This 240-nucleotide sequence from Scyliorhinus torazame belongs to the Rfam family "Small nucleolar RNA SNORD17". The family's RNA type in Rfam is C/D-box small nucleolar RNA. For this family Rfam cites "RNomics: an experimental approach that identifies 201 candidates for novel, small, non-messenger RNAs in mouse" (Huttenhofer et al., EMBO J, 2001). The base pairs follow the family's consensus structure, which was predicted with RNAalifold. The family has 19 seed sequences and 1,015 matches in Rfam 15.1. About the family: The snoRNA HBI-43 belongs to the C/D family of snoRNAs, guiding 2'O-ribose methylation at position U3797 of the 28S rRNA. Pseudouridylation in position U3797 is predicted to be guided by the H/ACA snoRNA ACA48. NCBI's taxonomy places the organism under Eukaryota, Chordata, Chondrichthyes, Galeoidea, Scyliorhinus.
RNA sequence: GUGAAAUGAUGAAUAAGUUUAUCCAUUCGCCGAGUGCCGCUAGCCACUUCUUCCACAGCACGCUGAGUCUUAUUUUAAGCUCUGGGUGAAUUACAUUCAUCUUGUACCAUAUGACUUACUGGCGUUCUGCUGAGAAGUUGUUGGUCCCUGAUUGGGUGUAUGUGGAUAUGAGAUGGUUUGGCAGAGUUGGGACCUUUCUGGGAUCCAACUUUACGAAGAUGAAUGAUGCAGUCUGAUCAC
Numbered sequence: 001g002u003g004a005a006a007u008g009a010u011g012a013a014u015a016a017g018u019u020u021a022u023c024c025a026u027u028c029g030c031c032g033a034g035u036g037c038c039g040c041u042a043g044c045c046a047c048u049u050c051u052u053c054c055a056c057a058g059c060a061c062g063c064u065g066a067g068u069c070u071u072a073u074u075u076u077a078a079g080c081u082c083u084g085g086g087u088g089a090a091u092u093a094c095a096u097u098c099a100u101c102u103u104g105u106a107c108c109a110u111a112u113g114a115c116u117u118a119c120u121g122g123c124g125u126u127c128u129g130c131u132g133a134g135a136a137g138u139u140g141u142u143g144g145u146c147c148c149u150g151a152u153u154g155g156g157u158g159u160a161u162g163u164g165g166a167u168a169u170g171a172g173a174u175g176g177u178u179u180g181g182c183a184g185a186g187u188u189g190g191g192a193c194c195u196u197u198c199u200g201g202g203a204u205c206c207a208a209c210u211u212u213a214c215g216a217a218g219a220u221g222a223a224u225g226a227u228g229c230a231g232u233c234u235g236a237u238c239a240c
Base pairs, nucleotide, nucleotide: 010239011238012237014235017232018231019230024225025224026223027222028221029220030218034214035213039182040181041180042179043177044176045175046174048172049171050170051168054165056162057161059088060087061086063084065082069079070078071077093159094158095157096156097155098154099153106145107144108143112140113139114138115137116136117135120132121131122130123129124128184211185210186209187208188207189206190205191204193202194201